[Rfam]
RNA: Bacterial large subunit ribosomal RNA, nucleotides 2757 to 3021
Organism: uncultured bacterium OMZ60_11L23
RNA sequence: CGAUAUUUGAGAAAAUCUGCCUCUAGUACGAGAGGAUCGAGGUGGACGAACCUAUGGUGAGUCAGUUGUUGUGCUAACAGCAUGGCUGAGUAGCUAAGUUCGGAAAGGAUAAACGCUGAAAGCAUAUAAGCGUGAAGCCUGCUUUAAGACUAGAUAUCGUUCUCUAAUUUAUUAGGGUGAAGACAUCUUAAAGACUAUGAGAUUGAUAGGCCAGGUGUGUAAGUCCGGUAACGGAUUCAGCUAACUGGUACUAAUUUGUCGAAAA
Numbered sequence: 001c002g003a004u005a006u007u008u009g010a011g012a013a014a015a016u017c018u019g020c021c022u023c024u025a026g027u028a029c030g031a032g033a034g035g036a037u038c039g040a041g042g043u044g045g046a047c048g049a050a051c052c053u054a055u056g057g058u059g060a061g062u063c064a065g066u067u068g069u070u071g072u073g074c075u076a077a078c079a080g081c082a083u084g085g086c087u088g089a090g091u092a093g094c095u096a097a098g099u100u101c102g103g104a105a106a107g108g109a110u111a112a113a114c115g116c117u118g119a120a121a122g123c124a125u126a127u128a129a130g131c132g133u134g135a136a137g138c139c140u141g142c143u144u145u146a147a148g149a150c151u152a153g154a155u156a157u158c159g160u161u162c163u164c165u166a167a168u169u170u171a172u173u174a175g176g177g178u179g180a181a182g183a184c185a186u187c188u189u190a191a192a193g194a195c196u197a198u199g200a201g202a203u204u205g206a207u208a209g210g211c212c213a214g215g216u217g218u219g220u221a222a223g224u225c226c227g228g229u230a231a232c233g234g235a236u237u238c239a240g241c242u243a244a245c246u247g248g249u250a251c252u253a254a255u256u257u258g259u260c261g262a263a264a265a
Stems, first nucleotide, its partner, number of pairs: 001159008011145003017045007047102005055096003062089005067082006106140003113133005162177005182260004186202005207253003210249005217241001223236005
Dot-bracket structure: ((((((((..(((...(((((((...............))))))).(((((...(((....(((((((((((....))))))..)))))....))).)))))...(((....(((((...........)))))....)))..)))......))))))))..(((((......)))))....(((((((((.......)))))....((((((((..(.....(((((....)))))....)...))))).)))...)))).....